[Rfam]
RNA sequence: CAUGUCUCUCAGCUUCUUUAUAGUGCUGCCUUGUUGACUAUAAAUCAAGCAGCAUUGUACAGGGCUAUGAAAGAUGUG
Numbered sequence: 001c002a003u004g005u006c007u008c009u010c011a012g013c014u015u016c017u018u019u020a021u022a023g024u025g026c027u028g029c030c031u032u033g034u035u036g037a038c039u040a041u042a043a044a045u046c047a048a049g050c051a052g053c054a055u056u057g058u059a060c061a062g063g064g065c066u067a068u069g070a071a072a073g074a075u076g077u078g
Stems, first nucleotide, its partner, number of pairs: 014064004019059010030049004
Rfam assigns this 78-nucleotide RNA from Aquarana catesbeiana to the family "mir-103/107 microRNA precursor family". The family's consensus secondary structure was predicted with RNAalifold. Rfam's curators write: This family consists of the mammalian microRNA (miRNA) precursors mir-103 and mir107. NCBI's taxonomy places the organism under Eukaryota, Vertebrata, Gnathostomata, Sarcopterygii, Aquarana.